[Rfam]
RNA sequence: AACUUUUACGAGGUAUCAGCACUUUUCUUUCAUUAGUGGGGAAGGAAGGAUGAAAAAUACAAAACGGGAGUAGACUUUUAAAGUUUAAAUAGAUAGCUCUGAGUGCCUGAACGUGCUCUUCCAUUUUACUUUAACCAUCCAAAGAAGUACUCUGAUCCAGUUUUACUGCUGAUCAGCAAGGGUAAGUCGAAAGU
Numbered sequence: 001a002a003c004u005u006u007u008a009c010g011a012g013g014u015a016u017c018a019g020c021a022c023u024u025u026u027c028u029u030u031c032a033u034u035a036g037u038g039g040g041g042a043a044g045g046a047a048g049g050a051u052g053a054a055a056a057a058u059a060c061a062a063a064a065c066g067g068g069a070g071u072a073g074a075c076u077u078u079u080a081a082a083g084u085u086u087a088a089a090u091a092g093a094u095a096g097c098u099c100u101g102a103g104u105g106c107c108u109g110a111a112c113g114u115g116c117u118c119u120u121c122c123a124u125u126u127u128a129c130u131u132u133a134a135c136c137a138u139c140c141a142a143a144g145a146a147g148u149a150c151u152c153u154g155a156u157c158c159a160g161u162u163u164u165a166c167u168g169c170u171g172a173u174c175a176g177c178a179a180g181g182g183u184a185a186g187u188c189g190a191a192a193g194u
Base pairs, nucleotide, nucleotide: 003019004018007015008014009013029146030145031144033142034141036139037137039136040135041132042131043130044129049125050124051123052122056120057119072100073099074098076096077095101116103114104113105112154188158186161182162181163180164178166176167175168174
RNA: Connexin-43 internal ribosome entry site (IRES)
Organism: Tyrannus savana